[Rfam]
The record is a 171-nucleotide RNA from Ramlibacter aurantiacus, which matches "Group II catalytic intron D1-D4-3" in Rfam. A search with the family's covariance model found it, with a score of 87 bits. Pairs were carried over by alignment from the consensus structure. Taxonomically the source falls in Ramlibacter (Bacteria, Pseudomonadati, Pseudomonadota, Comamonadaceae). Its family is annotated with Group II intron splicing in the Gene Ontology.
RNA sequence: AUGAGGGCGACCGACUGCGGGGGGAAGCGUGGAGCGUAAAUCGCGAGCCGAUGAACAAGACCCGCUUGGAAGGCGACUGCGCCCAGGGCGAGCGGGCAUGACACCGUGAAGCUCUGGUGAUCAAGGGGCGCGGGCGUCAAUGCGGCGGCUGUGCGAUGAAGGAGUGCGUUC
Numbered sequence: 001a002u003g004a005g006g007g008c009g010a011c012c013g014a015c016u017g018c019g020g021g022g023g024g025a026a027g028c029g030u031g032g033a034g035c036g037u038a039a040a041u042c043g044c045g046a047g048c049c050g051a052u053g054a055a056c057a058a059g060a061c062c063c064g065c066u067u068g069g070a071a072g073g074c075g076a077c078u079g080c081g082c083c084c085a086g087g088g089c090g091a092g093c094g095g096g097c098a099u100g101a102c103a104c105c106g107u108g109a110a111g112c113u114c115u116g117g118u119g120a121u122c123a124a125g126g127g128g129c130g131c132g133g134g135c136g137u138c139a140a141u142g143c144g145g146c147g148g149c150u151g152u153g154c155g156a157u158g159a160a161g162g163a164g165u166g167c168g169u170u171c
Stems, first nucleotide, its partner, number of pairs: 001016001005012002027171001029169003035162001040157006046150005062145004067140001073137003077133007086114004092107004